[Rfam]
RNA sequence: GCUGGGAAGUGGAAGAAAAGAGGGCGAGUAGUGGGAGUGGGAACAUGGAGGAAAGCCUAACUUGCUUUGUUUUCACCUCUAGCGUUGGAGGUGAGAACUUGCUUUGGUGUUUCCCGAUGCCUCCCAUUCCCAUUGUUCUCAAGCACUCCUUCCUCUUCCUUUUUGGG
Numbered sequence: 001g002c003u004g005g006g007a008a009g010u011g012g013a014a015g016a017a018a019a020g021a022g023g024g025c026g027a028g029u030a031g032u033g034g035g036a037g038u039g040g041g042a043a044c045a046u047g048g049a050g051g052a053a054a055g056c057c058u059a060a061c062u063u064g065c066u067u068u069g070u071u072u073u074c075a076c077c078u079c080u081a082g083c084g085u086u087g088g089a090g091g092u093g094a095g096a097a098c099u100u101g102c103u104u105u106g107g108u109g110u111u112u113c114c115c116g117a118u119g120c121c122u123c124c125c126a127u128u129c130c131c132a133u134u135g136u137u138c139u140c141a142a143g144c145a146c147u148c149c150u151u152c153c154u155c156u157u158c159c160u161u162u163u164u165g166g167g
Base pairs, nucleotide, nucleotide: 009158011156012155013154015152016151017150020148021147022146025143026138027137028136029135030134032132033131034130035129036128037127038126039125040124041123042122044119045118046117048115050114051113053112054111055110056109